[Rfam]
Source information:
The record is a 52-nucleotide RNA, which matches "ffh sRNA" in Rfam. It is annotated as a small RNA.
RNA sequence: CUGGAGCAAAAUCAACACCCGACAACGAUAUUCGUCCUCGGGUGCAUUAUCG
Numbered sequence: 001c002u003g004g005a006g007c008a009a010a011a012u013c014a015a016c017a018c019c020c021g022a023c024a025a026c027g028a029u030a031u032u033c034g035u036c037c038u039c040g041g042g043u044g045c046a047u048u049a050u051c052g
Stems, first nucleotide, its partner, number of pairs: 016044007025035004
Dot-bracket structure: ...............(((((((..((((...))))..)))))))........